[Rfam]
RNA: tRNA
Organism: Lachnellula subtilissima
RNA sequence: UCCCGAGUAGUGUAGGGGUUAACAUACUCCGCUUUCAUUCCUGAAUACAGGAAUAGAUCCGGAGAGCCCCGGGUUCGAUUCCCGGCUCGGGAA
Numbered sequence: 001u002c003c004c005g006a007g008u009a010g011u012g013u014a015g016g017g018g019u020u021a022a023c024a025u026a027c028u029c030c031g032c033u034u035u036c037a038u039u040c041c042u043g044a045a046u047a048c049a050g051g052a053a054u055a056g057a058u059c060c061g062g063a064g065a066g067c068c069c070c071g072g073g074u075u076c077g078a079u080u081c082c083c084g085g086c087u088c089g090g091g092a093a
Base pairs, nucleotide, nucleotide: 001092002091003090004089005088006087007086010025011024012023013022027064028063029062030061031060069085070084071083072082073081